RNA sequence: UAACGAAAUAAAUACGCCGUUCGUAUAUCCUCGAUAAUAUGGUUCGAAAGUAUCUACCGGAGCACCGUAAACGCUCUGACUAUGAAGGCGGAAUUUCUAAAG
Numbered sequence: 001u002a003a004c005g006a007a008a009u010a011a012a013u014a015c016g017c018c019g020u021u022c023g024u025a026u027a028u029c030c031u032c033g034a035u036a037a038u039a040u041g042g043u044u045c046g047a048a049a050g051u052a053u054c055u056a057c058c059g060g061a062g063c064a065c066c067g068u069a070a071a072c073g074c075u076c077u078g079a080c081u082a083u084g085a086a087g088g089c090g091g092a093a094u095u096u097c098u099a100a101a102g
Base pairs, nucleotide, nucleotide: 018088020086021085022084023083024082025081031047032046033045034044058078059077060076061075062074063073

A member of the RNA family "Purine riboswitch aptamer" from Virgibacillus salinus, 102 nucleotides long. It scores 74 bits against the family's covariance model. Pairs were carried over by alignment from the consensus structure, which is taken from published work.